[Rfam]
RNA sequence: AGGGCUGCAGUGUAUAUAUAUAUAUAUAUAUACAUACACACUGAGGACUGCAGUGUGUGUGUGUAUAUAUAUAUAUAUAUAUUGCAGCCCUCAGUGUGUGUGUAAAUAUAUUAUAUAUAUAUAUAUAUACACACACACUGAGGGCUGCAGUGUGUGUGUGUAUAUAUACACACUGAGGGCUGCAGUGUGUGUGUGUAUAUUAUAU
Numbered sequence: 001a002g003g004g005c006u007g008c009a010g011u012g013u014a015u016a017u018a019u020a021u022a023u024a025u026a027u028a029u030a031u032a033c034a035u036a037c038a039c040a041c042u043g044a045g046g047a048c049u050g051c052a053g054u055g056u057g058u059g060u061g062u063g064u065a066u067a068u069a070u071a072u073a074u075a076u077a078u079a080u081a082u083u084g085c086a087g088c089c090c091u092c093a094g095u096g097u098g099u100g101u102g103u104a105a106a107u108a109u110a111u112u113a114u115a116u117a118u119a120u121a122u123a124u125a126u127a128u129a130c131a132c133a134c135a136c137a138c139u140g141a142g143g144g145c146u147g148c149a150g151u152g153u154g155u156g157u158g159u160g161u162a163u164a165u166a167u168a169c170a171c172a173c174u175g176a177g178g179g180c181u182g183c184a185g186u187g188u189g190u191g192u193g194u195g196u197a198u199a200u201u202a203u204a205u
Stems, first nucleotide, its partner, number of pairs: 006086010020074008030066011042055002088142001090140001096136009112125003160198006167191002170188003174184002177181001
This 205-nucleotide sequence from Leptobrachium leishanense belongs to the Rfam family "Enterococcus sRNA 1300".
Rfam 15.1 lists 115 matches to the family in 105 species.
A search with the family's covariance model found it, with a score of 49 bits.
A reference for the family is Sinel et al. (2017), "Small RNAs in vancomycin-resistant Enterococcus faecium involved in daptomycin response and resistance", Sci Rep.
It is annotated as a small RNA.
Rfam describes the family as follows. Expressed in mid and late exponential phases of growth.